The record is a 142-nucleotide RNA sequence from Hibiscus trionum, which matches "Small nucleolar RNA snoR136" in Rfam.
The organism belongs to Hibiscus, within Eukaryota.
For this family Rfam cites "Mining small RNA sequencing data: a new approach to identify small nucleolar RNAs in Arabidopsis" (Chen and Wu, Nucleic Acids Res, 2009).
The base pairs follow the family's consensus structure, which was predicted with mfold.
It is annotated as an H/ACA-box small nucleolar RNA.
RNA sequence: UUGGCUCCUUUUUGAUUAUUUGAAGUUAGAAUCUUGAUUUGAAUGAUGAUAGAAUCUGGUAAAAAAGGAGCCUAAAUUGACAGUUCUCCUCGCUAUCCAGUUCCUCUAUCAUGUGGUAAUUGGACGUCGGAGAAUUACAUUU
Numbered sequence: 001u002u003g004g005c006u007c008c009u010u011u012u013u014g015a016u017u018a019u020u021u022g023a024a025g026u027u028a029g030a031a032u033c034u035u036g037a038u039u040u041g042a043a044u045g046a047u048g049a050u051a052g053a054a055u056c057u058g059g060u061a062a063a064a065a066a067g068g069a070g071c072c073u074a075a076a077u078u079g080a081c082a083g084u085u086c087u088c089c090u091c092g093c094u095a096u097c098c099a100g101u102u103c104c105u106c107u108a109u110c111a112u113g114u115g116g117u118a119a120u121u122g123g124a125c126g127u128c129g130g131a132g133a134a135u136u137a138c139a140u141u142u
Stems, first nucleotide, its partner, number of pairs: 001075002003072003008067006017061002020058001029056002032053003037050003083135007091126002096124005106113001